[Rfam]
RNA sequence: CUACAGCACGGCGACUGGCGCACGGGGAACGGACCCCGAGGAAGCCGUGCGAGGCAGAACCUUCGAGGUGCCGCCCGCCUGGGCACCCCGG
Dot-bracket structure: .....(((((((..(([[[[...((((......))))..))..))))))).................(((((...]]]]..))))).....
The family of this 91-nucleotide RNA from Streptomyces formicae is "ZMP/ZTP riboswitch aptamer (pfl RNA motif)". The family's consensus secondary structure is taken from published work. Its family is annotated with regulation of purine nucleotide biosynthetic process and one-carbon metabolic process in the Gene Ontology. The match comes from Rfam's covariance-model search (49 bits).